[Rfam]
RNA sequence: GCUUGAAUGAUGACUUUAUAUUCUUUGUCGGAUACCCCUUCACUCUUCAAUGAGUGAGAACCGCAGUCUGACGCGC
Dot-bracket structure: ((.((..................................................................)).))
Numbered sequence: 001g002c003u004u005g006a007a008u009g010a011u012g013a014c015u016u017u018a019u020a021u022u023c024u025u026u027g028u029c030g031g032a033u034a035c036c037c038c039u040u041c042a043c044u045c046u047u048c049a050a051u052g053a054g055u056g057a058g059a060a061c062c063g064c065a066g067u068c069u070g071a072c073g074c075g076c
Stems, first nucleotide, its partner, number of pairs: 001076002004073002